[Rfam]
This 88-nucleotide sequence from Equus asinus belongs to the Rfam family "mir-9014 microRNA precursor family".
RNA sequence: GGAGCCAUAGAGAGGGACCCCAAUCCAACCUUAGGCAAAGAAACCUGCCAUGGGAGUCUUGGAUAUUGGCAACUGUCAUAAUGACUUA
Numbered sequence: 001g002g003a004g005c006c007a008u009a010g011a012g013a014g015g016g017a018c019c020c021c022a023a024u025c026c027a028a029c030c031u032u033a034g035g036c037a038a039a040g041a042a043a044c045c046u047g048c049c050a051u052g053g054g055a056g057u058c059u060u061g062g063a064u065a066u067u068g069g070c071a072a073c074u075g076u077c078a079u080a081a082u083g084a085c086u087u088a
Stems, first nucleotide, its partner, number of pairs: 002087003006083003010079001012077002015074002020069005029062002038060004044054004
The organism belongs to Equus, within Eukaryota.
Rfam links the family to the GO terms RISC complex and miRNA-mediated post-transcriptional gene silencing.
The family's consensus secondary structure was predicted with RNAalifold.
The family has 2 seed sequences and 581 matches in Rfam 15.1.